[Rfam]
RNA: SAM-III riboswitch aptamer (SMK box)
Organism: Lactobacillus jensenii
RNA sequence: AUCGGUUCAAGUCCUGAUAGGAUUCGUUAUACGAAGAUGCCUUGUAACCGAAUAGCUUGUCUAUAGGGGGACAUUAUG
Number, nucleotide and partner (000 for none) at each position: 001a000002u000003c000004g000005g000006u000007u000008c000009a000010a000011g072012u071013c070014c069015u068016g000017a000018u000019a042020g041021g040022a000023u035024u034025c033026g032027u031028u000029a000030u000031a027032c026033g025034a024035a023036g000037a000038u000039g000040c021041c020042u019043u000044g000045u000046a000047a000048c067049c066050g000051a000052a000053u000054a000055g000056c000057u000058u000059g000060u000061c000062u000063a000064u000065a000066g049067g048068g015069g014070g013071a012072c011073a000074u000075u000076a000077u000078g000